[Rfam]
RNA: mir-9/mir-79 microRNA precursor family
Organism: Bugula neritina
RNA sequence: AUAAAACCAUCUUUGGUUAUCUAGCUGUAUGAGUGUGUGCCAUAUCAUCAUAAAGCUAGGUUACCAAGGUAGGGUGAAU
Numbered sequence: 001a002u003a004a005a006a007c008c009a010u011c012u013u014u015g016g017u018u019a020u021c022u023a024g025c026u027g028u029a030u031g032a033g034u035g036u037g038u039g040c041c042a043u044a045u046c047a048u049c050a051u052a053a054a055g056c057u058a059g060g061u062u063a064c065c066a067a068g069g070u071a072g073g074g075u076g077a078a079u
Base pairs, nucleotide, nucleotide: 001079002078005075007073008072011069012068013067014066015065016064017063019061020060021059022058023057024056025055026054028052029051030050031049032048